Mason-Pfizer monkey virus packaging signal: a 275-nucleotide RNA sequence from Piliocolobus tephrosceles. It is annotated as a cis-regulatory element. Rfam's curators write: This family represents a group of sequences that are related to the Mason-Pfizer monkey virus (MPMV) packaging signal. The packaging signal is located in the 5' UTR and is required for specific RNA encapsidation. For this family Rfam cites "Secondary structure model of the Mason-Pfizer monkey virus 5' leader sequence: identification of a structural motif common to a variety of retroviruses" (Harrison et al., J Virol, 1995). Lineage of the source: Eukaryota > Opisthokonta > Bilateria > Catarrhini > Piliocolobus.
RNA sequence: UGGUGCCCGAACAGGGACCUGGACAUGGGGGAAAAAGUGAGGAAGAAGGCACUAAAUUCGGCCGACAGUGAAAGUGGAAGAAAUUACUCCAGAUGUCGUGGGAACCUGCUGCGUUGGAACCAGAGGUAAGUAACAAUGUGUGAUUAUGGGACAAGAAUUAAGCCAACAUCAAAUUUAUGUAGGACAGUUAAAAGAGGCUUUAAAAAUGCGAGGAGUGAAGGUUAAAAGUAAUGAUUUGUUUAAAUUUUUUGAUUUUGUAAAGGAUACCGGCCCUU
Number, nucleotide and partner (000 for none) at each position: 001u000002g000003g000004u000005g000006c031007c030008c029009g000010a000011a000012c000013a026014g000015g024016g000017a000018c000019c000020u000021g000022g000023a000024c015025a000026u013027g000028g000029g008030g007031g006032a000033a000034a000035a000036a000037g000038u046039g000040a000041g000042g000043a000044a000045g000046a038047a000048g000049g000050c000051a000052c000053u000054a000055a000056a000057u000058u000059c000060g000061g000062c000063c000064g000065a000066c000067a000068g000069u000070g000071a000072a000073a000074g000075u000076g000077g000078a000079a000080g000081a000082a000083a000084u000085u128086a127087c126088u124089c123090c000091a000092g000093a000094u119095g000096u000097c113098g112099u111100g110101g109102g000103a000104a000105c000106c000107u000108g000109c101110u100111g099112c098113g097114u000115u000116g000117g000118a000119a094120c000121c000122a000123g089124a088125g000126g087127u086128a085129a000130g000131u000132a000133a000134c000135a000136a000137u151138g000139u150140g000141u148142g147143a000144u000145u000146a000147u142148g141149g000150g139151a137152c000153a000154a000155g000156a000157a000158u000159u202160a201161a200162g198163c197164c196165a000166a000167c000168a000169u000170c000171a000172a000173a000174u000175u000176u000177a000178u000179g000180u000181a000182g000183g000184a000185c000186a000187g000188u000189u000190a000191a000192a000193a000194g000195a000196g164197g163198c162199u000200u161201u160202a159203a000204a000205a000206a000207u000208g000209c251210g250211a249212g248213g247214a246215g245216u244217g000218a000219a237220g236221g235222u234223u233224a232225a000226a000227a000228g000229u000230a000231a000232u224233g223234a222235u221236u220237u219238g000239u000240u000241u000242a000243a000244a216245u215246u214247u213248u212249u211250u210251g209252a000253u000254u000255u000256u000257g000258u000259a000260a275261a274262g273263g272264a000265u270266a000267c000268c000269g000270g265271c000272c263273c262274u261275u260